Annotation:
The family of this 288-nucleotide sequence from Sciurus vulgaris is "Mason-Pfizer monkey virus packaging signal". It is annotated as a cis-regulatory element. The family's consensus secondary structure was predicted with PFOLD. Rfam 15.1 lists 2,921 matches to the family in 53 species.
RNA sequence: UGGGGCCCAAUGUGGGGCCUUGGAUAUGGGGGAAUUCGUGAGGGAAGAGGUAUGUAAGUGUUUGGCCGAAGAAAAAGAAAAAAAAGUUAAAGUCAGUACAACAAAGUUCACCACGGGAGCCUGCAGCGCCGUUCUUAAAGGUACAGUAGCGCAUAACUAUGGGACAAGAAAUAAGUAAGCAUAAAGUUUUUGUUAAACAAUUAAAAGAAGCUUUAAAGACACAGGGAGUAAAGGUUAAGAGUAAUGAUCUUUUUAAGUUUUUUGACCUUCUUAAGGACACCUGUUCAU
Numbered sequence: 001u002g003g004g005g006c007c008c009a010a011u012g013u014g015g016g017g018c019c020u021u022g023g024a025u026a027u028g029g030g031g032g033a034a035u036u037c038g039u040g041a042g043g044g045a046a047g048a049g050g051u052a053u054g055u056a057a058g059u060g061u062u063u064g065g066c067c068g069a070a071g072a073a074a075a076a077g078a079a080a081a082a083a084a085a086g087u088u089a090a091a092g093u094c095a096g097u098a099c100a101a102c103a104a105a106g107u108u109c110a111c112c113a114c115g116g117g118a119g120c121c122u123g124c125a126g127c128g129c130c131g132u133u134c135u136u137a138a139a140g141g142u143a144c145a146g147u148a149g150c151g152c153a154u155a156a157c158u159a160u161g162g163g164a165c166a167a168g169a170a171a172u173a174a175g176u177a178a179g180c181a182u183a184a185a186g187u188u189u190u191u192g193u194u195a196a197a198c199a200a201u202u203a204a205a206a207g208a209a210g211c212u213u214u215a216a217a218g219a220c221a222c223a224g225g226g227a228g229u230a231a232a233g234g235u236u237a238a239g240a241g242u243a244a245u246g247a248u249c250u251u252u253u254u255a256a257g258u259u260u261u262u263u264g265a266c267c268u269u270c271u272u273a274a275g276g277a278c279a280c281c282u283g284u285u286c287a288u
Stems, first nucleotide, its partner, number of pairs: 006032003012027003037050001039048001093141002097137002109131001112128001114126001116124001147167001149165001152163001154161002172215003175211002222264008232250006273288001275286004